[Rfam]
RNA sequence: UAAUCUACAUAAGUCAGAUCCCUAUUUAGUAGUUUCAAAUCCUCACAUAAAUGCUCAGAAUCUUCAAUUUCUAUAAGCCCGACUGCAUCAAUAAGUCAACUUUAAAACCUUAUUAUCUGACUUCUUUCCUAGCUU
Numbered sequence: 001u002a003a004u005c006u007a008c009a010u011a012a013g014u015c016a017g018a019u020c021c022c023u024a025u026u027u028a029g030u031a032g033u034u035u036c037a038a039a040u041c042c043u044c045a046c047a048u049a050a051a052u053g054c055u056c057a058g059a060a061u062c063u064u065c066a067a068u069u070u071c072u073a074u075a076a077g078c079c080c081g082a083c084u085g086c087a088u089c090a091a092u093a094a095g096u097c098a099a100c101u102u103u104a105a106a107a108c109c110u111u112a113u114u115a116u117c118u119g120a121c122u123u124c125u126u127u128c129c130u131a132g133c134u135u
Stems, first nucleotide, its partner, number of pairs: 005132003009127001012122001014120002018116002023112002027107001030104002

A member of the RNA family "MIR480 microRNA precursor family" from Populus tomentosa, 135 nucleotides long. Gene Ontology terms of the family: RISC complex and miRNA-mediated post-transcriptional gene silencing. On this family, see Lu et al., Plant Cell 2005: "Novel and mechanical stress-responsive MicroRNAs in Populus trichocarpa that are absent from Arabidopsis".